pemK RNA: a 118-nucleotide RNA sequence. It is annotated as a cis-regulatory element.

Nucleotides: 118
Stems, first nucleotide, its partner, number of pairs: 012115001013083006084101003087097003102114003
Number, partner (000 for none) and nucleotide at each position: 001000a002000u003000a004000a005000u006000g007000a008000u009000a010000c011000u012115u013083c014082u015081g016080c017079g018078u019000a020000g021000u022000c023000a024000c025000a026000g027000g028000c029000u030000g031000a032000g033000c034000g035000u036000u037000g038000a039000a040000g041000c042000g043000g044000g045000a046000u047000u048000u049000g050000u051000c052000c053000u054000c055000c056000c057000g058000u059000g060000a061000g062000c063000c064000g065000u066000c067000g068000c069000a070000c071000c072000c073000a074000a075000u076000g077000a078018g079017c080016g081015c082014a083013g084101c085100g086099g087097g088096g089095c090000a091000g092000a093000a094000a095089g096088c097087c098000a099086c100085c101084g102114g103113g104112g105000u106000g107000a108000g109000a110000g111000u112104c113103c114102c115012a116000u117000g118000a